This 105-nucleotide sequence from Pueribacillus theae belongs to the Rfam family "SAM riboswitch aptamer (S box leader)". NCBI's taxonomy places the organism under Bacteria, Bacillati, Caryophanales, Bacillaceae, Pueribacillus. The SAM riboswitch is found upstream of a number of genes which code for proteins involved in methionine or cysteine biosynthesis in Gram-positive bacteria. The SAM riboswitch acts at the level of transcription termination control. The predicted structure consists of a complex stem-loop region followed by a single stem loop terminator region.

RNA sequence: AACUUAUCAAGAGUGACUGAGGGACAGGCCCAAUGACGUCCGGCAACCUCCAGAAAUGGAAAGGUGCUACUUCCUGCAGAAUGGUUCCAUUCUGAAAGAUAAGAC
Numbered sequence: 001a002a003c004u005u006a007u008c009a010a011g012a013g014u015g016a017c018u019g020a021g022g023g024a025c026a027g028g029c030c031c032a033a034u035g036a037c038g039u040c041c042g043g044c045a046a047c048c049u050c051c052a053g054a055a056a057u058g059g060a061a062a063g064g065u066g067c068u069a070c071u072u073c074c075u076g077c078a079g080a081a082u083g084g085u086u087c088c089a090u091u092c093u094g095a096a097a098g099a100u101a102a103g104a105c
Stems, first nucleotide, its partner, number of pairs: 003103006013041001015040003021031003025076004042068004047064002049060004072097001077094006